[Rfam]
Overview:
Rfam assigns this 81-nucleotide sequence from Austrofundulus limnaeus to the family "Small nucleolar RNA SNORD72". A search with the family's covariance model found it, with a score of 56 bits. For this family Rfam cites "RNomics: an experimental approach that identifies 201 candidates for novel, small, non-messenger RNAs in mouse" (Huttenhofer et al., EMBO J, 2001). Lineage of the source: Eukaryota > Teleostei > Clupeocephala > Euacanthomorphacea > Austrofundulus. Its family is annotated with RNA processing and nucleolus in the Gene Ontology. snoRNA HBII-240 belongs to the CD family of snoRNAs. It is the human orthologue of the mouse MBII-240 and is predicted to guide 2'O-ribose methylation of the large 28S rRNA at residue U4590.
RNA sequence: GUCUUGUCAAAGAUGUCUCCAAACACAAAUGUCUGAACAAAUGACUUUAUGUGAUUCCAUCAUUUUUUUCUGAGACAAGAC
Numbered sequence: 001g002u003c004u005u006g007u008c009a010a011a012g013a014u015g016u017c018u019c020c021a022a023a024c025a026c027a028a029a030u031g032u033c034u035g036a037a038c039a040a041a042u043g044a045c046u047u048u049a050u051g052u053g054a055u056u057c058c059a060u061c062a063u064u065u066u067u068u069u070c071u072g073a074g075a076c077a078a079g080a081c
Base pairs, nucleotide, nucleotide: 002080003079004078005077006076007075008074